[Rfam]
RNA: L4-Archaeoglobi ribosomal protein leades
Organism: Halolamina pelagica
RNA sequence: CUGACGAUCGCGUCCGGGUCAAUUGCGGACUGCAACACCCGAUCUCCCUGCUCGUCCCGUCGUCGAUGACGGUCGAACAGGGGGAGCGCGUCACAGUCAG
Numbered sequence: 001c002u003g004a005c006g007a008u009c010g011c012g013u014c015c016g017g018g019u020c021a022a023u024u025g026c027g028g029a030c031u032g033c034a035a036c037a038c039c040c041g042a043u044c045u046c047c048c049u050g051c052u053c054g055u056c057c058c059g060u061c062g063u064c065g066a067u068g069a070c071g072g073u074c075g076a077a078c079a080g081g082g083g084g085a086g087c088g089c090g091u092c093a094c095a096g097u098c099a100g
Base pairs, nucleotide, nucleotide: 001100002099003098004097005096009090010089011088012087013086015041016040017039018038023035024034025033026032027031043085044084045083046082047081048080049079050078052076053075